Shown here is a 141-nucleotide RNA sequence from Tripterygium wilfordii, a member of the family "Small nucleolar RNA snoR77". It is annotated as an H/ACA-box small nucleolar RNA. The literature on the family includes a 2002 paper in Curr Biol by Marker et al., "Experimental RNomics: identification of 140 candidates for small non-messenger RNAs in the plant Arabidopsis thaliana". The organism belongs to Tripterygium, within Eukaryota. It scores 83 bits against the family's covariance model. Pairs were carried over by alignment from the consensus structure, which was predicted with WAR.
RNA sequence: UGGCAGCCUCUUUGCAAUAUAUUUCAAGCAAAGAAGGUGUUGAACUGCUCUUAUAGUGAAUUUGCUUUGGUGAUUUGGACCUGCUGAGAGACUCGUUUCCACUCCUUUCCUUGAAGCUGGUCUAGUAGGCCUUAGUGUAUA
Numbered sequence: 001u002g003g004c005a006g007c008c009u010c011u012u013u014g015c016a017a018u019a020u021a022u023u024u025c026a027a028g029c030a031a032a033g034a035a036g037g038u039g040u041u042g043a044a045c046u047g048c049u050c051u052u053a054u055a056g057u058g059a060a061u062u063u064g065c066u067u068u069g070g071u072g073a074u075u076u077g078g079a080c081c082u083g084c085u086g087a088g089a090g091a092c093u094c095g096u097u098u099c100c101a102c103u104c105c106u107u108u109c110c111u112u113g114a115a116g117c118u119g120g121u122c123u124a125g126u127a128g129g130c131c132u133u134a135g136u137g138u139a140u141a
Base pairs, nucleotide, nucleotide: 002041003040004039005038007037008036009034010033011032012031013030014029015028065135066134070130071129077123078122079121080120081119083117084116085115088109089108090107